[Rfam]
The family of this 75-nucleotide RNA sequence from Alligator sinensis is "Mammalian CPEB3 ribozyme".
About the family: The mammalian CPEB3 ribozyme is a self cleaving RNA located in the second intron of the CPEB3 gene which belongs to a family of genes regulating messenger RNA polyadenylation.
NCBI's taxonomy places the organism under Eukaryota, Eumetazoa, Teleostomi, Alligatoridae, Alligator.
RNA sequence: UGAGAGUUUGAGGCCAUAGCAGAAGCAUUCACAGCAUUGCCAUGUCAGAUCCCAAAUGAAUCUGUGAAUUCUGCU
Numbered sequence: 001u002g003a004g005a006g007u008u009u010g011a012g013g014c015c016a017u018a019g020c021a022g023a024a025g026c027a028u029u030c031a032c033a034g035c036a037u038u039g040c041c042a043u044g045u046c047a048g049a050u051c052c053c054a055a056a057u058g059a060a061u062c063u064g065u066g067a068a069u070u071c072u073g074c075u
Stems, first nucleotide, its partner, number of pairs: 012041003018075007025037001046064005052058001

Pairs were carried over by alignment from the consensus structure, which is taken from published work.